A member of the RNA family "Purine riboswitch aptamer" from Clostridium paridis, 103 nucleotides long.
[Rfam]
RNA sequence: AUUAAAUAAUUGAAUAGGUUCGAUAUAUCGCUAACAUAUAUGGGUUAGCAGUUUCUACCGGGUGACCGUAAAUUACCCGACUAUCGUGAAAUUGAUUUAGAGU
Numbered sequence: 001a002u003u004a005a006a007u008a009a010u011u012g013a014a015u016a017g018g019u020u021c022g023a024u025a026u027a028u029c030g031c032u033a034a035c036a037u038a039u040a041u042g043g044g045u046u047a048g049c050a051g052u053u054u055c056u057a058c059c060g061g062g063u064g065a066c067c068g069u070a071a072a073u074u075a076c077c078c079g080a081c082u083a084u085c086g087u088g089a090a091a092u093u094g095a096u097u098u099a100g101a102g103u
Stems, first nucleotide, its partner, number of pairs: 019088001021086005030049006059079007
The organism belongs to Clostridium, within Bacteria. A search with the family's covariance model found it, with a score of 74 bits.